[Rfam]
RNA sequence: AUAUGGUGAUGAUCGCAAUCUUUGGUCCGUGUUUAUGAGGUGGAUUCAAGACCCACCGCGUGAGUGACAAAGAGGAUUUAAAAUCGUUUCUGAAUAU
Dot-bracket structure: ((((.........................................................................................))))
Numbered sequence: 001a002u003a004u005g006g007u008g009a010u011g012a013u014c015g016c017a018a019u020c021u022u023u024g025g026u027c028c029g030u031g032u033u034u035a036u037g038a039g040g041u042g043g044a045u046u047c048a049a050g051a052c053c054c055a056c057c058g059c060g061u062g063a064g065u066g067a068c069a070a071a072g073a074g075g076a077u078u079u080a081a082a083a084u085c086g087u088u089u090c091u092g093a094a095u096a097u
Stems, first nucleotide, its partner, number of pairs: 001097004
Rfam assigns this 97-nucleotide RNA sequence from Meyerozyma sp. JA9 to the family "Small nucleolar RNA SNORD18". A search with the family's covariance model found it, with a score of 42 bits. The family's consensus secondary structure was predicted with PFOLD.